The record is a 577-nucleotide part of an RNA from Methanothermobacter tenebrarum, which matches "Archaeal large subunit ribosomal RNA" in Rfam. Rfam links the family to the GO terms structural constituent of ribosome and ribosome. NCBI's taxonomy places the organism under Archaea, Methanobacteria, Methanobacteriales, Methanobacteriaceae, Methanothermobacter. Pairs were carried over by alignment from the consensus structure, which is taken from published work.
[Rfam]
RNA sequence: GUAAUCAUGCCAUCUGGGGGAUGGCUCGGCUUGGGCGCCGAAGAAGGUCGUGGCAAGCUGCGAUAAGCCCGGGCGAGGAGCAUGCAUCCUUGGAACCCGGGAUCGCCGAAUGGGACCUCCCAGUCCCCUGAUAAUAAGGGGACUGCUCCCCCAUGGGAGCGGGAACCCGCCGAACUGAAACAUCUUAGUAGGCGGAGGAAAAGAAAGCAACAUGCGAUGCCGUGAGUAAUGGCGAAUGAAAGCGGCACAGGACAAACCGAACCCCCCAUAGCAAUAUGGAGGGGAUGUGGUGUUGUUGGGGGACAUGACACAUACAACUCUUCAUGGGAGUGUGUCGAAGUCUGGCUGGAAUGCCAGCGCCGAAGAGGGUUAAAGCCCCGUAGAUGCGCUCCUAGGAGAGUUGAUGUCACGUCCCCAGAGUAGCGUCCGUUGGAUAUCGGGCGUGAAGCUGGGAGGCAUCGACUCCCAAUCCUAAAUACGUCCCAAGACCGAUAGCGUACUAUGUACCGUGAGGGAAAGCUGAAAAGCACCCCUAAUCGGGGGGUGAAAAGAGCCUGAAACCAGAUGGCGACAGCCC
Numbered sequence: 001g002u003a004a005u006c007a008u009g010c011c012a013u014c015u016g017g018g019g020g021a022u023g024g025c026u027c028g029g030c031u032u033g034g035g036c037g038c039c040g041a042a043g044a045a046g047g048u049c050g051u052g053g054c055a056a057g058c059u060g061c062g063a064u065a066a067g068c069c070c071g072g073g074c075g076a077g078g079a080g081c082a083u084g085c086a087u088c089c090u091u092g093g094a095a096c097c098c099g100g101g102a103u104c105g106c107c108g109a110a111u112g113g114g115a116c117c118u119c120c121c122a123g124u125c126c127c128c129u130g131a132u133a134a135u136a137a138g139g140g141g142a143c144u145g146c147u148c149c150c151c152c153a154u155g156g157g158a159g160c161g162g163g164a165a166c167c168c169g170c171c172g173a174a175c176u177g178a179a180a181c182a183u184c185u186u187a188g189u190a191g192g193c194g195g196a197g198g199a200a201a202a203g204a205a206a207g208c209a210a211c212a213u214g215c216g217a218u219g220c221c222g223u224g225a226g227u228a229a230u231g232g233c234g235a236a237u238g239a240a241a242g243c244g245g246c247a248c249a250g251g252a253c254a255a256a257c258c259g260a261a262c263c264c265c266c267c268a269u270a271g272c273a274a275u276a277u278g279g280a281g282g283g284g285a286u287g288u289g290g291u292g293u294u295g296u297u298g299g300g301g302g303a304c305a306u307g308a309c310a311c312a313u314a315c316a317a318c319u320c321u322u323c324a325u326g327g328g329a330g331u332g333u334g335u336c337g338a339a340g341u342c343u344g345g346c347u348g349g350a351a352u353g354c355c356a357g358c359g360c361c362g363a364a365g366a367g368g369g370u371u372a373a374a375g376c377c378c379c380g381u382a383g384a385u386g387c388g389c390u391c392c393u394a395g396g397a398g399a400g401u402u403g404a405u406g407u408c409a410c411g412u413c414c415c416c417a418g419a420g421u422a423g424c425g426u427c428c429g430u431u432g433g434a435u436a437u438c439g440g441g442c443g444u445g446a447a448g449c450u451g452g453g454a455g456g457c458a459u460c461g462a463c464u465c466c467c468a469a470u471c472c473u474a475a476a477u478a479c480g481u482c483c484c485a486a487g488a489c490c491g492a493u494a495g496c497g498u499a500c501u502a503u504g505u506a507c508c509g510u511g512a513g514g515g516a517a518a519g520c521u522g523a524a525a526a527g528c529a530c531c532c533c534u535a536a537u538c539g540g541g542g543g544g545u546g547a548a549a550a551g552a553g554c555c556u557g558a559a560a561c562c563a564g565a566u567g568g569c570g571a572c573a574g575c576c577c
Stems, first nucleotide, its partner, number of pairs: 008570010023555001024520002028490002030487006036480002046107003049062003068101006077089003112121003146159005166197001167195005177184002207215002219246005229237002249473004257290003267278004302408004318400004334385003340358001342357001344355003361365001367379003423444007451467005507514002